[Rfam]
RNA sequence: GGGCGGUUGAUGCGUCCCGCGCGGUACGAUCUGGUGGACAUAUGGGGCAUUCUGCGGGCCGAUUAGGCCCGAUGGCGGAGC
Number, nucleotide and partner (000 for none) at each position: 001g022002g000003g020004c019005g018006g017007u000008u000009g000010a000011u000012g000013c000014g000015u000016c000017c006018c005019g004020c003021g000022c001023g000024g000025u000026a000027c000028g000029a000030u000031c000032u000033g000034g000035u000036g000037g000038a000039c000040a000041u000042a000043u000044g000045g000046g000047g000048c000049a000050u000051u000052c000053u000054g000055c071056g070057g069058g068059c067060c066061g000062a000063u000064u000065a000066g060067g059068c058069c057070c056071g055072a000073u000074g000075g000076c000077g000078g000079a000080g000081c000
Rfam assigns this 81-nucleotide RNA sequence to the family "RAGATH-28 RNA".
The base pairs follow the family's consensus structure, which is taken from published work.
Rfam classes the family as a small RNA.
Rfam's curators put it in the seed alignment.